RNA sequence: AUGUAGUGUAGCAUGCCCGUUUGGUGCUUACUCUGAUGUUUAUGUUAUAUUUAAAUGAUUUUGGGUAACGGGGUGUUACAAUAAG
Numbered sequence: 001a002u003g004u005a006g007u008g009u010a011g012c013a014u015g016c017c018c019g020u021u022u023g024g025u026g027c028u029u030a031c032u033c034u035g036a037u038g039u040u041u042a043u044g045u046u047a048u049a050u051u052u053a054a055a056u057g058a059u060u061u062u063g064g065g066u067a068a069c070g071g072g073g074u075g076u077u078a079c080a081a082u083a084a085g
Stems, first nucleotide, its partner, number of pairs: 002085001004083002007080008016072006
Overview:
A member of the RNA family "MIR2617 microRNA precursor family" from Medicago truncatula, 85 nucleotides long. Taxonomically the source falls in Medicago (Eukaryota, Euphyllophyta, Fabaceae, Hologalegina).